A member of the RNA family "Small nucleolar RNA SNORD16" from Python bivittatus, 100 nucleotides long. Rfam classes the family as a C/D-box small nucleolar RNA. For this family Rfam cites "RNomics: an experimental approach that identifies 201 candidates for novel, small, non-messenger RNAs in mouse" (Huttenhofer et al., EMBO J, 2001). A search with the family's covariance model found it, with a score of 104 bits.

[Rfam]
RNA sequence: UGCAAUGAUGUUGUAAUUUGCGUCUUACUCUGUAUUCAGUGACAGUUGCCUGCUGUCAUCAGGCUGGUGCAGAUGAUUGAUGAUCCUCUAACUCUGAGCA
Numbered sequence: 001u002g003c004a005a006u007g008a009u010g011u012u013g014u015a016a017u018u019u020g021c022g023u024c025u026u027a028c029u030c031u032g033u034a035u036u037c038a039g040u041g042a043c044a045g046u047u048g049c050c051u052g053c054u055g056u057c058a059u060c061a062g063g064c065u066g067g068u069g070c071a072g073a074u075g076a077u078u079g080a081u082g083a084u085c086c087u088c089u090a091a092c093u094c095u096g097a098g099c100a
Base pairs, nucleotide, nucleotide: 001100002099003098021082022081023080024079030072031071032070033069034068039064040063041057042056043055044054045053